Record summary:
Shown here is a 149-nucleotide RNA from Catagonus wagneri, a member of the family "small Cajal body-specific RNA 17". The family's consensus secondary structure is taken from published work. The family's RNA type in Rfam is small Cajal body RNA. For this family Rfam cites "Cajal body-specific small nuclear RNAs: a novel class of 2'-O-methylation and pseudouridylation guide RNAs" (Darzacq et al., EMBO J, 2002). The family has 6 seed sequences and 262 matches in Rfam 15.1. The organism belongs to Catagonus, within Eukaryota. It scores 79 bits against the family's covariance model. scaRNAs are a specific class of small nuclear RNAs which localise to the Cajal bodies and guide the modification of RNA polymerase II transcribed spliceosomal RNAs U1, U2, U4, U5 and U12.
RNA sequence: CCCCCUGGUCCCAGAUGCAGCCCCCAAUGCACUUGCGAUAUUUUCAUUAUAUGAUUGGGCCCUAUGGCUUGUAGUCCCACUGGCCCUGGCCCAGAUCCUGAGAGAACUGAGAAAACAUGACAGGGGAAGUGGGGCUAGGUAACCAUGGG
Numbered sequence: 001c002c003c004c005c006u007g008g009u010c011c012c013a014g015a016u017g018c019a020g021c022c023c024c025c026a027a028u029g030c031a032c033u034u035g036c037g038a039u040a041u042u043u044u045c046a047u048u049a050u051a052u053g054a055u056u057g058g059g060c061c062c063u064a065u066g067g068c069u070u071g072u073a074g075u076c077c078c079a080c081u082g083g084c085c086c087u088g089g090c091c092c093a094g095a096u097c098c099u100g101a102g103a104g105a106a107c108u109g110a111g112a113a114a115a116c117a118u119g120a121c122a123g124g125g126g127a128a129g130u131g132g133g134g135c136u137a138g139g140u141a142a143c144c145a146u147g148g149g
Stems, first nucleotide, its partner, number of pairs: 001149003006145004012139001020135005055101005062094002067090003071086001